This 209-nucleotide sequence from Aureibacillus halotolerans belongs to the Rfam family "Bacillus sRNA ncr1575".
RNA sequence: GAACAUUAAACGAAAGGGAUGAUGGGUGGACAAUGUACAGCUAAACCUACGUUUUCGCAUUUGAAAUGACUCUAAUUUCAAGUUGAAAAAACCUAGGAUUAGUCUGCCCAAAUCUCUCUAGAUAACUAGAUAGCGUAAUCGCUACAUAGCUUAUUUAGGUACGGUUAUUACAUGACUAAUCCUUCCAAUACCAUUGGGAGGAUUUUUUG
Numbered sequence: 001g002a003a004c005a006u007u008a009a010a011c012g013a014a015a016g017g018g019a020u021g022a023u024g025g026g027u028g029g030a031c032a033a034u035g036u037a038c039a040g041c042u043a044a045a046c047c048u049a050c051g052u053u054u055u056c057g058c059a060u061u062u063g064a065a066a067u068g069a070c071u072c073u074a075a076u077u078u079c080a081a082g083u084u085g086a087a088a089a090a091a092c093c094u095a096g097g098a099u100u101a102g103u104c105u106g107c108c109c110a111a112a113u114c115u116c117u118c119u120a121g122a123u124a125a126c127u128a129g130a131u132a133g134c135g136u137a138a139u140c141g142c143u144a145c146a147u148a149g150c151u152u153a154u155u156u157a158g159g160u161a162c163g164g165u166u167a168u169u170a171c172a173u174g175a176c177u178a179a180u181c182c183u184u185c186c187a188a189u190a191c192c193a194u195u196g197g198g199a200g201g202a203u204u205u206u207u208u209g
Stems, first nucleotide, its partner, number of pairs: 016116004023110004029104003042101003046097004051092004059083009123157003131149001133147001135145002178204011
Dot-bracket structure: ...............((((...((((..(((..........(((.((((.((((....(((((((((.......))))))))).....)))).)))).))))))..))))..))))......(((.....(.(.((.......)).).).....)))....................(((((((((((.....))))))))))).....